[Rfam]
Shown here is a 70-nucleotide sequence from Bombyx mori, a member of the family "mir-278 microRNA precursor family". It is one of the family's seed sequences. Its family is annotated with miRNA-mediated post-transcriptional gene silencing and RISC complex in the Gene Ontology. NCBI's taxonomy places the organism under Eukaryota, Protostomia, Pancrustacea, Insecta, Bombyx.
Nucleotides: 070
Base pairs, nucleotide, nucleotide: 003068004067005066006065009062010061011060012059013058014057015056019052020051021050024048027046028045029044030043031042
Number, partner (000 for none) and nucleotide at each position: 001000g002000c003068u004067a005066c006065g007000c008000c009062c010061g011060g012059a013058c014057g015056a016000a017000c018000u019052u020051c021050c022000c023000a024048g025000c026000u027046c028045g029044g030043c031042c032000g033000a034000c035000a036000a037000u038000c039000a040000g041000g042031g043030g044029u045028c046027g047000g048024u049000g050021g051020g052019a053000u054000c055000u056015u057014c058013g059012u060011c061010c062009g063000u064000u065006u066005g067004u068003a069000u070000c